[Rfam]
RNA: Plastid-psbA-1 3UTR RNA
RNA sequence: UUGAAAUUGAAAAGUAAUUUUUUUUGUGAAAAAAAAAUAAAGUAUCAAACAAAGUAGCAAUACCCCAUGUCUUGCUAAAGCAAGACAUGGUGGUAUUGCUACUUU
Numbered sequence: 001u002u003g004a005a006a007u008u009g010a011a012a013a014g015u016a017a018u019u020u021u022u023u024u025u026g027u028g029a030a031a032a033a034a035a036a037a038u039a040a041a042g043u044a045u046c047a048a049a050c051a052a053a054g055u056a057g058c059a060a061u062a063c064c065c066c067a068u069g070u071c072u073u074g075c076u077a078a079a080g081c082a083a084g085a086c087a088u089g090g091u092g093g094u095a096u097u098g099c100u101a102c103u104u105u
Stems, first nucleotide, its partner, number of pairs: 051105013065090003069086005